[Rfam]
RNA sequence: UGCACCGUGAGGUGGAAUCUGAAGGAAGCUGGAGGCAAACCCUCGACCUGAGGUACACGAAUCGCAUUUGAGGCUGUCAUAGUUGGACGAGUUGCCAAUACACAACGAAGUCCAAAGUCGCCAAGGGCUAUGGCAGUAGACUGCGGCAGGUGCAUGAGGGGAAAGAGUCCGUU
Numbered sequence: 001u002g003c004a005c006c007g008u009g010a011g012g013u014g015g016a017a018u019c020u021g022a023a024g025g026a027a028g029c030u031g032g033a034g035g036c037a038a039a040c041c042c043u044c045g046a047c048c049u050g051a052g053g054u055a056c057a058c059g060a061a062u063c064g065c066a067u068u069u070g071a072g073g074c075u076g077u078c079a080u081a082g083u084u085g086g087a088c089g090a091g092u093u094g095c096c097a098a099u100a101c102a103c104a105a106c107g108a109a110g111u112c113c114a115a116a117g118u119c120g121c122c123a124a125g126g127g128c129u130a131u132g133g134c135a136g137u138a139g140a141c142u143g144c145g146g147c148a149g150g151u152g153c154a155u156g157a158g159g160g161g162a163a164a165g166a167g168u169c170c171g172u173u
Stems, first nucleotide, its partner, number of pairs: 001016001003014004028173001030171003036165001040160006046151005062146005067140001073137003077133007085113004091106004

Shown here is a 173-nucleotide RNA from Sulfoacidibacillus thermotolerans, a member of the family "Group II catalytic intron D1-D4-3". The organism belongs to Sulfoacidibacillus, within Bacteria. A search with the family's covariance model found it, with a score of 133 bits. Gene Ontology term of the family: Group II intron splicing.